[Rfam]
RNA: mir-393 microRNA precursor family
RNA sequence: GAAGGAUAAAUCCAAAGAGAUUGCAUGAUCCAAACGAAACCAUAAAAUUAAAAAUUGAAUUGUAAGUUGGGAUCAAUGCGAUCCCUUUGGAUUCCUCCUU
Dot-bracket structure: .(((((..(((((((((.(((.(((((((((......................................)))))).))).))).)))))))))..)))))